[Rfam]
RNA sequence: GGAAUUUUGAGUGGGGCUGACCUUAGUACGAGAGGACCGGGUUGGACUAACCUCUAGUGAAUCUGUUGUUCCGCCAGGGGCAUUGCAGAGUAGCUACGUUGGGAAUAGAUAAGCGCUGAAAGCAUCUAAGUGCGAAACUAGCCACGAGAUGAGAAUUCCAUAUAGGACCGUAGCAGACUACUACGUUGAUAGGUUACAGAUGUAAAGGUGGUGACAUCAAAGUCGAGUAAUACUAAUCAUCCGAA
Numbered sequence: 001g002g003a004a005u006u007u008u009g010a011g012u013g014g015g016g017c018u019g020a021c022c023u024u025a026g027u028a029c030g031a032g033a034g035g036a037c038c039g040g041g042u043u044g045g046a047c048u049a050a051c052c053u054c055u056a057g058u059g060a061a062u063c064u065g066u067u068g069u070u071c072c073g074c075c076a077g078g079g080g081c082a083u084u085g086c087a088g089a090g091u092a093g094c095u096a097c098g099u100u101g102g103g104a105a106u107a108g109a110u111a112a113g114c115g116c117u118g119a120a121a122g123c124a125u126c127u128a129a130g131u132g133c134g135a136a137a138c139u140a141g142c143c144a145c146g147a148g149a150u151g152a153g154a155a156u157u158c159c160a161u162a163u164a165g166g167a168c169c170g171u172a173g174c175a176g177a178c179u180a181c182u183a184c185g186u187u188g189a190u191a192g193g194u195u196a197c198a199g200a201u202g203u204a205a206a207g208g209u210g211g212u213g214a215c216a217u218c219a220a221a222g223u224c225g226a227g228u229a230a231u232a233c234u235a236a237u238c239a240u241c242c243g244a245a
Base pairs, nucleotide, nucleotide: 001159002158003157004156005155006154007153008152011145012144013143014142017045018044019043020042021041022040023039047102048101049100050099051098055096056095057094062089063088064087065086066085067082068081069080070079071078072077106140107139108138113133114132115131116130117129165242166241167240169185170184171183172182173181190235191234192233193231194230195229196228197227199224200223203219207218208217209216210215
Overview
The record is a 245-nucleotide part of an RNA from Pedobacter sp. PACM 27299, which matches "Bacterial large subunit ribosomal RNA" in Rfam.